Record summary:
Rfam assigns this 66-nucleotide RNA sequence from Peromyscus maniculatus to the family "mir-344 microRNA precursor family". Lineage of the source: Eukaryota > Bilateria > Sarcopterygii > Dipnotetrapodomorpha > Peromyscus maniculatus. A search with the family's covariance model found it, with a score of 55 bits. The family's consensus secondary structure was predicted with RNAalifold.

RNA sequence: UUGCCAGCCAGGCUUCUGGCUAAAGUCCAGCCCUUAGCUGGAUUUAGCUAGGAGCUUGGUUGUAAA
Numbered sequence: 001u002u003g004c005c006a007g008c009c010a011g012g013c014u015u016c017u018g019g020c021u022a023a024a025g026u027c028c029a030g031c032c033c034u035u036a037g038c039u040g041g042a043u044u045u046a047g048c049u050a051g052g053a054g055c056u057u058g059g060u061u062g063u064a065a066a
Stems, first nucleotide, its partner, number of pairs: 007060003011056004017050008027041005